The family of this 200-nucleotide sequence from Bradyrhizobium erythrophlei is "Bradyrhizobiaceae sRNA BjrC174".

[Rfam]
RNA sequence: GUCACGGGAUCGUUAGCUCAAUCAUAAUACCGCCCCACUUCUGCCAACGGCAUGCCGUGCUGGACUGCGACAAGAGGCGCCUACGUUGGCCCGGUCCUUUCGAUACCGGAUUCCUCAGCCCCCAGCCCCCCGGGGUCGUCGGGACCGGGUCUAACGCAGAGUAUUGAUCCGUGACUGGACCAACGAGAGUUGGUCCUUUU
Numbered sequence: 001g002u003c004a005c006g007g008g009a010u011c012g013u014u015a016g017c018u019c020a021a022u023c024a025u026a027a028u029a030c031c032g033c034c035c036c037a038c039u040u041c042u043g044c045c046a047a048c049g050g051c052a053u054g055c056c057g058u059g060c061u062g063g064a065c066u067g068c069g070a071c072a073a074g075a076g077g078c079g080c081c082u083a084c085g086u087u088g089g090c091c092c093g094g095u096c097c098u099u100u101c102g103a104u105a106c107c108g109g110a111u112u113c114c115u116c117a118g119c120c121c122c123c124a125g126c127c128c129c130c131c132g133g134g135g136u137c138g139u140c141g142g143g144a145c146c147g148g149g150u151c152u153a154a155c156g157c158a159g160a161g162u163a164u165u166g167a168u169c170c171g172u173g174a175c176u177g178g179a180c181c182a183a184c185g186a187g188a189g190u191u192g193g194u195c196c197u198u199u200u
Base pairs, nucleotide, nucleotide: 038050081159082158084156085155086154088151089150090149091148092147093146094145095144096143097142098141101138102137103136104135106133107132108131109130118126119125177196178195179194180193181192182191183190184189

Taxonomically the source falls in Bradyrhizobium (Bacteria, Alphaproteobacteria, Hyphomicrobiales, Nitrobacteraceae). Pairs were carried over by alignment from the consensus structure.